[Rfam]
RNA sequence: GCGGUACCGGUUCACGUUCGCAAGAGCGACCCGGCGACC
Numbered sequence: 001g002c003g004g005u006a007c008c009g010g011u012u013c014a015c016g017u018u019c020g021c022a023a024g025a026g027c028g029a030c031c032c033g034g035c036g037a038c039c
Stems, first nucleotide, its partner, number of pairs: 003039003007034004015028005
This 39-nucleotide RNA belongs to the Rfam family "L31-Actinobacteria ribosomal protein leader". The family's RNA type in Rfam is cis-regulatory leader. On this family, see Eckert and Weinberg, BMC Microbiol 2020: "Discovery of 20 novel ribosomal leader candidates in bacteria and archaea".